[Rfam]
RNA: ZMP/ZTP riboswitch aptamer (pfl RNA motif)
RNA sequence: ACCGCGUGCGGCGACUGGCGAACGUGGAACGGACCACGGGGAAGCCGCGCGGCGCAGCAGCCGAGUGGUGCCGCCCGCCUGGGUGCCCCGG
Numbered sequence: 001a002c003c004g005c006g007u008g009c010g011g012c013g014a015c016u017g018g019c020g021a022a023c024g025u026g027g028a029a030c031g032g033a034c035c036a037c038g039g040g041g042a043a044g045c046c047g048c049g050c051g052g053c054g055c056a057g058c059a060g061c062c063g064a065g066u067g068g069u070g071c072c073g074c075c076c077g078c079c080u081g082g083g084u085g086c087c088c089c090g091g
Stems, first nucleotide, its partner, number of pairs: 005051008015041002017079004024037004068086005